Record summary: Shown here is a 65-nucleotide RNA from Bacillus sp. J14TS2, a member of the family "Bacillaceae-1 RNA". Pairs were carried over by alignment from the consensus structure, which is taken from published work. It is annotated as a small RNA. The organism belongs to Bacillus, within Bacteria.

[Rfam]
RNA sequence: UUUAGCGGAACAUCGGCUAAGGACGCCCCUUCCUGUGGCACGCCGAUGGACUCGCAUCCUGCGAG
Numbered sequence: 001u002u003u004a005g006c007g008g009a010a011c012a013u014c015g016g017c018u019a020a021g022g023a024c025g026c027c028c029c030u031u032c033c034u035g036u037g038g039c040a041c042g043c044c045g046a047u048g049g050a051c052u053c054g055c056a057u058c059c060u061g062c063g064a065g
Stems, first nucleotide, its partner, number of pairs: 011048007025039003029035001051065005